[Rfam]
Shown here is a 288-nucleotide RNA from Actinomadura meyerae, a member of the family "5' ureB small RNA". A search with the family's covariance model found it, with a score of 40 bits. A reference for the family is Wen et al. (2013), "Helicobacter pylori 5'ureB-sRNA, a cis-encoded antisense small RNA, negatively regulates ureAB expression by transcription termination", J Bacteriol.

RNA sequence: GUGCUGCGCCUGCUGCGGCGCGAGGAAGUGGACGUGGGAGUCGAUGGCGCCGGCGGUCGCGAUGAGGUUCUCCCCGGAGAUCACCUCGGUGCCCACCCCGACGAUCAGCCGCCGGUCCACCCCGUUCUGAGUGUGCGGGUUGCCGGACUUGCCGACCCCGGCGAUCCGCCCGUUCUUGAUGCCGAUGUCGCCCUUGACGACACCGAGCAGCGGGUCGAUGAUCACCACGUUGGUGAUGACCGUGUCCAGCGUCGUCGUCGCGCUCAGCGAGGCCGGGUCGGCGGACAU
Number, nucleotide and partner (000 for none) at each position: 001g288002u287003g286004c000005u285006g000007c283008g282009c281010c000011u163012g162013c161014u160015g159016c000017g075018g074019c000020g072021c000022g070023a000024g000025g000026a000027a000028g000029u052030g051031g050032a000033c049034g048035u000036g000037g000038g045039a000040g000041u000042c000043g000044a000045u038046g000047g000048c034049g033050c031051c030052g029053g000054c000055g000056g068057u067058c066059g000060c000061g000062a000063u000064g000065a000066g058067g057068u056069u000070c022071u000072c020073c000074c018075c017076g153077g152078a000079g000080a149081u000082c000083a000084c145085c000086u000087c000088g000089g143090u142091g141092c000093c139094c138095a000096c135097c000098c133099c000100g000101a000102c000103g000104a000105u130106c129107a000108g128109c000110c000111g125112c124113c000114g122115g121116u000117c000118c000119a000120c000121c115122c114123c000124g112125u111126u000127c000128u108129g106130a105131g000132u000133g098134u000135g096136c000137g000138g094139g093140u000141u091142g090143c089144c000145g084146g000147a000148c000149u080150u000151g000152c077153c076154g000155a000156c000157c000158c000159c015160g014161g013162c012163g011164a000165u000166c000167c000168g000169c277170c276171c275172g274173u000174u000175c271176u270177u269178g268179a000180u266181g265182c000183c262184g000185a000186u000187g000188u000189c000190g000191c213192c212193c000194u210195u209196g208197a000198c000199g000200a000201c000202a000203c000204c000205g000206a000207g000208c196209a195210g194211c000212g192213g191214g000215u000216c260217g259218a258219u000220g000221a255222u000223c000224a252225c000226c000227a000228c000229g000230u000231u000232g000233g000234u000235g000236a000237u000238g000239a000240c000241c000242g000243u000244g000245u000246c000247c000248a000249g000250c000251g000252u224253c000254g000255u221256c000257g000258u218259c217260g216261c000262g183263c000264u000265c181266a180267g000268c178269g177270a176271g175272g000273c000274c172275g171276g170277g169278u000279c000280g000281g009282c008283g007284g000285a005286c003287a002288u001
The family's consensus secondary structure was predicted with mfold. Lineage of the source: Bacteria > Bacillati > Actinomycetota > Actinomycetes > Actinomadura. Rfam links the family to the GO term negative regulation of gene expression.